[Rfam]
RNA sequence: UUUUUAACACAAACACCCGCUAACCGAGACCUAUGGGUGUCUAAAGCACGUCUCUCAUACCUUGUCUAAGGGUGGCAAGGAAUAGUAACUCCA
Numbered sequence: 001u002u003u004u005u006a007a008c009a010c011a012a013a014c015a016c017c018c019g020c021u022a023a024c025c026g027a028g029a030c031c032u033a034u035g036g037g038u039g040u041c042u043a044a045a046g047c048a049c050g051u052c053u054c055u056c057a058u059a060c061c062u063u064g065u066c067u068a069a070g071g072g073u074g075g076c077a078a079g080g081a082a083u084a085g086u087a088a089c090u091c092c093a
Base pairs, nucleotide, nucleotide: 014039015038016037017036018035026054027053028052029051030050060080061079062078063077064076065075066074
Source information
Shown here is a 93-nucleotide RNA sequence from Leucotheavirus syn30, a member of the family "PhotoRC-II RNA". It scores 73 bits against the family's covariance model. The base pairs follow the family's consensus structure, which is taken from published work. By type it is a cis-regulatory element.